The record is a 229-nucleotide RNA sequence from Aquilegia coerulea, which matches "Early nodulin 40" in Rfam. A reference for the family is Gultyaev and Roussis (2007), "Identification of conserved secondary structures and expansion segments in enod40 RNAs reveals new enod40 homologues in plants", Nucleic Acids Res. Rfam classes the family as a non-coding RNA gene. Pairs were carried over by alignment from the consensus structure, which is taken from published work.
[Rfam]
RNA sequence: CUGCAAUGGCAGGAGUUUAAACACGGGUCUAAAGAAGCAUGGCAUUUUGGAGCAAUGGACUUAACAACUUUCUCCAGAAUUAAAUCAGUUUGUCUAUCUGCUCAACCAUCUUCUCUGCAAUUAUACUACGUAUUAUGAUGCUCGACUAUAACUUUAGUUAGGAUGGUAAACUAAAGCAAACUGAACAGGCAAGUCACAGAAUGGCAUUUGGAGACUCCACAUAAGUCUU
Numbered sequence: 001c002u003g004c005a006a007u008g009g010c011a012g013g014a015g016u017u018u019a020a021a022c023a024c025g026g027g028u029c030u031a032a033a034g035a036a037g038c039a040u041g042g043c044a045u046u047u048u049g050g051a052g053c054a055a056u057g058g059a060c061u062u063a064a065c066a067a068c069u070u071u072c073u074c075c076a077g078a079a080u081u082a083a084a085u086c087a088g089u090u091u092g093u094c095u096a097u098c099u100g101c102u103c104a105a106c107c108a109u110c111u112u113c114u115c116u117g118c119a120a121u122u123a124u125a126c127u128a129c130g131u132a133u134u135a136u137g138a139u140g141c142u143c144g145a146c147u148a149u150a151a152c153u154u155u156a157g158u159u160a161g162g163a164u165g166g167u168a169a170a171c172u173a174a175a176g177c178a179a180a181c182u183g184a185a186c187a188g189g190c191a192a193g194u195c196a197c198a199g200a201a202u203g204g205c206a207u208u209u210g211g212a213g214a215c216u217c218c219a220c221a222u223a224a225g226u227c228u229u
Stems, first nucleotide, its partner, number of pairs: 049075003088186005107176001109174001213227004